[Rfam]
RNA: sul1 RNA
RNA sequence: GACGGACGCGGCAUGCCGCGUGGCUAGUCCCGGCGCCUAACCCUGGGUAACCC
Numbered sequence: 001g002a003c004g005g006a007c008g009c010g011g012c013a014u015g016c017c018g019c020g021u022g023g024c025u026a027g028u029c030c031c032g033g034c035g036c037c038u039a040a041c042c043c044u045g046g047g048u049a050a051c052c053c
Base pairs, nucleotide, nucleotide: 006021007020008019009018010017011016029047030046031045032044033043